[Rfam]
RNA: IMES-1 RNA motif
RNA sequence: AAUUAUCCGAUCUGGAAACAACUCGAGACGGUAGAAAGAAGAGAUAAAUAAGUUAGAGAACGAAAGUAGAAAGCUCUAAUAAAUAAAGGUACCAAAAAAAUUUAUUAGACCACCAAGAUUAAAAGAGAAAUUAAUCAAGGCGCUAAAAGAAAAAACUCAAUUUUAGACACUUUCGAACUCGAACUAAA
Numbered sequence: 001a002a003u004u005a006u007c008c009g010a011u012c013u014g015g016a017a018a019c020a021a022c023u024c025g026a027g028a029c030g031g032u033a034g035a036a037a038g039a040a041g042a043g044a045u046a047a048a049u050a051a052g053u054u055a056g057a058g059a060a061c062g063a064a065a066g067u068a069g070a071a072a073g074c075u076c077u078a079a080u081a082a083a084u085a086a087a088g089g090u091a092c093c094a095a096a097a098a099a100a101u102u103u104a105u106u107a108g109a110c111c112a113c114c115a116a117g118a119u120u121a122a123a124a125g126a127g128a129a130a131u132u133a134a135u136c137a138a139g140g141c142g143c144u145a146a147a148a149g150a151a152a153a154a155a156c157u158c159a160a161u162u163u164u165a166g167a168c169a170c171u172u173u174c175g176a177a178c179u180c181g182a183a184c185u186a187a188a
Base pairs, nucleotide, nucleotide: 001049003047004046011039012038013037061175062174063173064172065171066170075109076108077107078106079105080104081103082102083101117136118135119134120133121132125158126157127156143166144165145164146163147162148161